[Rfam]
Rfam assigns this 73-nucleotide RNA sequence from Pieris macdunnoughi to the family "mir-71 microRNA precursor family".
The match comes from Rfam's covariance-model search (61 bits).
Nucleotides: 073
Stems, first nucleotide, its partner, number of pairs: 008065008017057003021053002024050004
Number, partner (000 for none) and nucleotide at each position: 001000g002000c003000c004000g005000u006000u007000u008065g009064a010063a011062a012061g013060a014059c015058a016000u017057g018056g019055g020000u021053a022052g023000c024050g025049a026048g027047a028000u029000g030000u031000c032000c033000a034000g035000u036000a037000c038000a039000u040000c041000a042000c043000c044000a045000a046000u047027u048026c049025u050024c051000a052022c053021u054000a055019c056018c057017u058015u059014g060013u061012c062011u063010u064009u065008c066000a067000u068000g069000c070000g071000g072000a073000g